[Rfam]
RNA: Pyrobaculum sRNA 209
Nucleotides: 059
Stems, first nucleotide, its partner, number of pairs: 010047006021032004
Number, partner (000 for none) and nucleotide at each position: 001000a002000g003000c004000a005000g006000g007000a008000u009000c010047a011046g012045c013044c014043c015042c016000c017000g018000a019000g020000u021032g022031u023030c024029u025000g026000u027000u028000a029024a030023g031022a032021c033000u034000c035000a036000a037000u038000g039000a040000a041000a042015g043014g044013g045012g046011c047010u048000c049000c050000g051000g052000u053000u054000u055000c056000a057000u058000a059000g